[Rfam]
RNA sequence: GGCAGUUCUCGGUGAAGCACCCCGGAAUCAGGCUCCCUACACUCUGGUUCUGGGCAAGUCACCAGAGAACCACU
Number, nucleotide and partner (000 for none) at each position: 001g000002g073003c000004a000005g070006u069007u068008c067009u066010c065011g063012g062013u061014g060015a059016a000017g000018c000019a000020c054021c053022c052023c000024g051025g050026a049027a048028u047029c046030a045031g044032g043033c000034u000035c000036c000037c000038u000039a000040c000041a000042c000043u032044c031045u030046g029047g028048u027049u026050c025051u024052g022053g021054g020055c000056a000057a000058g000059u015060c014061a013062c012063c011064a000065g010066a009067g008068a007069a006070c005071c000072a000073c002074u000